Background
Shown here is a 74-nucleotide RNA sequence from Neolewinella lacunae, a member of the family "tRNA". Rfam classes the family as a transfer RNA.
[Rfam]
RNA sequence: AGUCCCUUAGCUCAGCUGGUUAGAGCGCUACACUGAUAAUGUAGAGGUCGGCAGUUCAAGUCUGCCAGGGACUA
Numbered sequence: 001a002g003u004c005c006c007u008u009a010g011c012u013c014a015g016c017u018g019g020u021u022a023g024a025g026c027g028c029u030a031c032a033c034u035g036a037u038a039a040u041g042u043a044g045a046g047g048u049c050g051g052c053a054g055u056u057c058a059a060g061u062c063u064g065c066c067a068g069g070g071a072c073u074a
Base pairs, nucleotide, nucleotide: 001073002072003071004070005069006068007067010026011025012024013023028044029043030042031041032040050066051065052064053063054062